[Rfam]
RNA sequence: AAUCGUCAUUUGUAGAGUAUCCUACCGGGCUUUUCGCAAAUGAAUCAUUAAUAAUAAAAGGAGUGCAUAGUGGCCCGUAUCGCUGGCAUUAACGUUCCUGAU
Numbered sequence: 001a002a003u004c005g006u007c008a009u010u011u012g013u014a015g016a017g018u019a020u021c022c023u024a025c026c027g028g029g030c031u032u033u034u035c036g037c038a039a040a041u042g043a044a045u046c047a048u049u050a051a052u053a054a055u056a057a058a059a060g061g062a063g064u065g066c067a068u069a070g071u072g073g074c075c076c077g078u079a080u081c082g083c084u085g086g087c088a089u090u091a092a093c094g095u096u097c098c099u100g101a102u
Stems, first nucleotide, its partner, number of pairs: 006043008021086002026077004034101002

Shown here is a 102-nucleotide RNA from Psychromonas sp. CNPT3, a member of the family "Alpha operon ribosome binding site". For this family Rfam cites "Translational repression of the Escherichia coli alpha operon mRNA: importance of an mRNA conformational switch and a ternary entrapment complex" (Schlax et al., J Biol Chem, 2001). The bacterial alpha operon ribosome binding site is surrounded by this complex pseudoknotted structure. Its family is annotated with ribosome binding in the Gene Ontology. Rfam classes the family as a cis-regulatory element.